The family of this 89-nucleotide RNA sequence from Thermosediminibacter oceani is "c-di-GMP-I riboswitch aptamer". The organism belongs to Thermosediminibacter oceani, within Bacteria.
[Rfam]
RNA sequence: UUCCGUCAAGGGCAAACCGUCGAAAGGUAGGGACGCAAAGCCACGGGCCUACGAAGAGACAAGCUCUUCAUAGCAGCCGGGCUGCCGGG
Dot-bracket structure: ...........((...(((((....))).))...))..((((.(((((.....((((.......))))....))..)))))))......

The family has 155 seed sequences and 5,092 matches in Rfam 15.1. Pairs were carried over by alignment from the consensus structure, which is taken from published work.